RNA sequence: GCGUGGGUCGGCCCACUGCACAGGAUCCAGUGGGCUGGGGGAUACGGCCGCCUCAAUCCCCGCGGGCGGCCGGCCGGUCCGGGAGGCGCGCCGCGUCUCCCGGACCGAA
Numbered sequence: 001g002c003g004u005g006g007g008u009c010g011g012c013c014c015a016c017u018g019c020a021c022a023g024g025a026u027c028c029a030g031u032g033g034g035c036u037g038g039g040g041g042a043u044a045c046g047g048c049c050g051c052c053u054c055a056a057u058c059c060c061c062g063c064g065g066g067c068g069g070c071c072g073g074c075c076g077g078u079c080c081g082g083g084a085g086g087c088g089c090g091c092c093g094c095g096u097c098u099c100c101c102g103g104a105c106c107g108a109a
Base pairs, nucleotide, nucleotide: 002107006075007074008073009037010036011035012034013033014032015031016030017029018028038043045072046071047070048069049068050067051066052065053064076106077105078104079103080102081101082100083099084098085097086096087095088094
RNA: Streptomyces RNA 4115